[Rfam]
RNA sequence: GAUCGUGCCGCGAUAGUAAUUCAACCCAGUACGAGAGGAACCGUUGAUUCACACAAUUGGUCAUCGCGCUUGGUUGAAAAGCCAGUGGCGCGAAGCUACCGUGUGCAGGAUUAUGACUGAACGCCUCUAAGUCAGAAUCCGCGCUAAUGAUGCGGCGCCUGAGCCCGUCGAUCGCCCUCCGACCGGCAGUAGGGGCAUCGCCCCCAAGGGCACGCGAGCCGGGCUGCGCCCGCGCCGAUCUCCUCACAAGGAUCGGCGCGGCGGCCCUGAAUUGCAGUUCCGAACGAUGGACGGGCAGAAUCCUUUGCAGACGACUUAAAUUCGCGACGGGGCAUUGUACGUGGCAGAGUGGCCUCUGCUGCCACGAUCCACUGAGAUCCGGCCCCGCGUCGCAGCAGAUUCGU
Numbered sequence: 001g002a003u004c005g006u007g008c009c010g011c012g013a014u015a016g017u018a019a020u021u022c023a024a025c026c027c028a029g030u031a032c033g034a035g036a037g038g039a040a041c042c043g044u045u046g047a048u049u050c051a052c053a054c055a056a057u058u059g060g061u062c063a064u065c066g067c068g069c070u071u072g073g074u075u076g077a078a079a080a081g082c083c084a085g086u087g088g089c090g091c092g093a094a095g096c097u098a099c100c101g102u103g104u105g106c107a108g109g110a111u112u113a114u115g116a117c118u119g120a121a122c123g124c125c126u127c128u129a130a131g132u133c134a135g136a137a138u139c140c141g142c143g144c145u146a147a148u149g150a151u152g153c154g155g156c157g158c159c160u161g162a163g164c165c166c167g168u169c170g171a172u173c174g175c176c177c178u179c180c181g182a183c184c185g186g187c188a189g190u191a192g193g194g195g196c197a198u199c200g201c202c203c204c205c206a207a208g209g210g211c212a213c214g215c216g217a218g219c220c221g222g223g224c225u226g227c228g229c230c231c232g233c234g235c236c237g238a239u240c241u242c243c244u245c246a247c248a249a250g251g252a253u254c255g256g257c258g259c260g261g262c263g264g265c266c267c268u269g270a271a272u273u274g275c276a277g278u279u280c281c282g283a284a285c286g287a288u289g290g291a292c293g294g295g296c297a298g299a300a301u302c303c304u305u306u307g308c309a310g311a312c313g314a315c316u317u318a319a320a321u322u323c324g325c326g327a328c329g330g331g332g333c334a335u336u337g338u339a340c341g342u343g344g345c346a347g348a349g350u351g352g353c354c355u356c357u358g359c360u361g362c363c364a365c366g367a368u369c370c371a372c373u374g375a376g377a378u379c380c381g382g383c384c385c386c387g388c389g390u391c392g393c394a395g396c397a398g399a400u401u402c403g404u
Stems, first nucleotide, its partner, number of pairs: 005158007014146004019049001021047005050105005058098003065092005070085006108140002114134005165294005171288001298402005304318001307315001324393006330385003334378002341372004346368001349365005
RNA: Eukaryotic large subunit ribosomal RNA, nucleotides 4083 to 4486
Organism: Eptatretus burgeri